[Rfam]
RNA sequence: AGUCGUCUGGCCCGCGGUGCAGUGCUGCAUCUCUGGUCAACUGGGAGUCUGAGAUGAAGCACUGUAGCUCGGGAGGACAACACU
Numbered sequence: 001a002g003u004c005g006u007c008u009g010g011c012c013c014g015c016g017g018u019g020c021a022g023u024g025c026u027g028c029a030u031c032u033c034u035g036g037u038c039a040a041c042u043g044g045g046a047g048u049c050u051g052a053g054a055u056g057a058a059g060c061a062c063u064g065u066a067g068c069u070c071g072g073g074a075g076g077a078c079a080a081c082a083c084u
Stems, first nucleotide, its partner, number of pairs: 011073003016068001018066009028056006035049002037046002
RNA: mir-143 microRNA precursor family